[Rfam]
RNA sequence: UAGAGGAGGAAGGCAAGUGCGGAGCACUUUCGGAAUGCCUUCCGACGAAUUGCCGCCGGGCGAAGGCGAGGGGGCGCUGCCUUGU
Numbered sequence: 001u002a003g004a005g006g007a008g009g010a011a012g013g014c015a016a017g018u019g020c021g022g023a024g025c026a027c028u029u030u031c032g033g034a035a036u037g038c039c040u041u042c043c044g045a046c047g048a049a050u051u052g053c054c055g056c057c058g059g060g061c062g063a064a065g066g067c068g069a070g071g072g073g074g075c076g077c078u079g080c081c082u083u084g085u
Stems, first nucleotide, its partner, number of pairs: 008043006016028004052075003056071002060067002
Dot-bracket structure: .......((((((..((((.....)))).........))))))........(((.((..((....))..)).)))..........
RNA: GA-cis RNA